A member of the RNA family "FMN riboswitch aptamer (RFN element)" from Paludibacterium paludis, 143 nucleotides long.
It scores 118 bits against the family's covariance model.
[Rfam]
RNA sequence: GUACGUCUUCAGGGCGGGGUGGAAUUCCCCACCGGCGGUAUGGCCUGCAUGGCCGAGCCCGCGAGCGCCUGCCGAUGGCAGGGUCAGCAGAUCCGGUGAAAUGCCGGAGCCGACGGUCACAGUCCGGAUGAGAGAAGAUGUGC
Numbered sequence: 001g002u003a004c005g006u007c008u009u010c011a012g013g014g015c016g017g018g019g020u021g022g023a024a025u026u027c028c029c030c031a032c033c034g035g036c037g038g039u040a041u042g043g044c045c046u047g048c049a050u051g052g053c054c055g056a057g058c059c060c061g062c063g064a065g066c067g068c069c070u071g072c073c074g075a076u077g078g079c080a081g082g083g084u085c086a087g088c089a090g091a092u093c094c095g096g097u098g099a100a101a102u103g104c105c106g107g108a109g110c111c112g113a114c115g116g117u118c119a120c121a122g123u124c125c126g127g128a129u130g131a132g133a134g135a136a137g138a139u140g141u142g143c
Base pairs, nucleotide, nucleotide: 003141004140005139006138007137008136009135010134017029018028019027031123032122033112034111035062036061037060038059057110058109065088066087092108093107094106095105096104114126115125116124